The family of this 134-nucleotide sequence from Aeromonas simiae is "Molybdenum/Tungsten riboswitch aptamer (Moco RNA motif)".
It scores 96 bits against the family's covariance model.
Pairs were carried over by alignment from the consensus structure, which is taken from published work.
RNA sequence: AAAUUCAUUGAACUCCGAGCCACCUUGCCUACGUCGGCAGAUAGGGGAGGGUGGCCGACAGCUUAGCGCUGUAAGGGUCAGGGAAGAAAUGACCUGGCCUCCCGUAUUUGGAAAGGUGUUUAUGUCGCUGCUUG
Numbered sequence: 001a002a003a004u005u006c007a008u009u010g011a012a013c014u015c016c017g018a019g020c021c022a023c024c025u026u027g028c029c030u031a032c033g034u035c036g037g038c039a040g041a042u043a044g045g046g047g048a049g050g051g052u053g054g055c056c057g058a059c060a061g062c063u064u065a066g067c068g069c070u071g072u073a074a075g076g077g078u079c080a081g082g083g084a085a086g087a088a089a090u091g092a093c094c095u096g097g098c099c100u101c102c103c104g105u106a107u108u109u110g111g112a113a114a115g116g117u118g119u120u121u122a123u124g125u126c127g128c129u130g131c132u133u134g
Stems, first nucleotide, its partner, number of pairs: 004127001011120003015116002019055008028046002033042003058072005075100008085090001101111002